[Rfam]
RNA sequence: AAAUUCUAGAUGGGCUACAGAGAGCCGCUUACGCGGCACUGUGAUGUAGCCUGACGGUGU
Numbered sequence: 001a002a003a004u005u006c007u008a009g010a011u012g013g014g015c016u017a018c019a020g021a022g023a024g025c026c027g028c029u030u031a032c033g034c035g036g037c038a039c040u041g042u043g044a045u046g047u048a049g050c051c052u053g054a055c056g057g058u059g060u
Base pairs, nucleotide, nucleotide: 011053012052013051014050015049016048017047018046019045024037025036026035027034028033